RNA sequence: GGGUGCUCUUGGCUUUUCUGCCAUGAGCAUAGCAGCGUUCAGCUUGUGGUAGAAAAGACAAAAGCCCCGUUAAUUUUUCAAUCAACGAGGCUUAAAUCAUGAUACUCAGCAGUUCUGAUUCUAGUCUCUAUUUAACCGAGAGGCAAGAUGUAUGCUACGAAA
Numbered sequence: 001g002g003g004u005g006c007u008c009u010u011g012g013c014u015u016u017u018c019u020g021c022c023a024u025g026a027g028c029a030u031a032g033c034a035g036c037g038u039u040c041a042g043c044u045u046g047u048g049g050u051a052g053a054a055a056a057g058a059c060a061a062a063a064g065c066c067c068c069g070u071u072a073a074u075u076u077u078u079c080a081a082u083c084a085a086c087g088a089g090g091c092u093u094a095a096a097u098c099a100u101g102a103u104a105c106u107c108a109g110c111a112g113u114u115c116u117g118a119u120u121c122u123a124g125u126c127u128c129u130a131u132u133u134a135a136c137c138g139a140g141a142g143g144c145a146a147g148a149u150g151u152a153u154g155c156u157a158c159g160a161a162a
Stems, first nucleotide, its partner, number of pairs: 001068003005065003011059001013057002016054009027043002069086003087128005095120004101115002132154001136150001

Shown here is a 162-nucleotide sequence from Photobacterium damselae, a member of the family "sok antitoxin (CssrC)". Rfam describes the family as follows. Also identified in Shigella as CssrC. A reference for the family is Kawano et al. (2007), "An antisense RNA controls synthesis of an SOS-induced toxin evolved from an antitoxin", Mol Microbiol. Gene Ontology term of the family: mRNA binding. The organism belongs to Photobacterium damselae subsp. damselae, within Bacteria. It scores 67 bits against the family's covariance model.